A member of the RNA family "tRNA" from Ogataea parapolymorpha, 96 nucleotides long. It is annotated as a transfer RNA. A search with the family's covariance model found it, with a score of 53 bits. On this family, see Hou, Trends Biochem Sci 1993: "The tertiary structure of tRNA and the development of the genetic code". The family's consensus secondary structure is taken from published work. The organism belongs to Ogataea parapolymorpha, within Eukaryota.
RNA sequence: GACAGUAUGGCCGAGUGGUUAAGGCGUUUGACUCGAAUUCCUGUUCGUGCCAUCAAAUGGACUUUGUCCGCACAGGUUCAAAUCCUGUUGCUGUCG
Numbered sequence: 001g002a003c004a005g006u007a008u009g010g011c012c013g014a015g016u017g018g019u020u021a022a023g024g025c026g027u028u029u030g031a032c033u034c035g036a037a038u039u040c041c042u043g044u045u046c047g048u049g050c051c052a053u054c055a056a057a058u059g060g061a062c063u064u065u066g067u068c069c070g071c072a073c074a075g076g077u078u079c080a081a082a083u084c085c086u087g088u089u090g091c092u093g094u095c096g
Stems, first nucleotide, its partner, number of pairs: 001095007010025003027057005072088005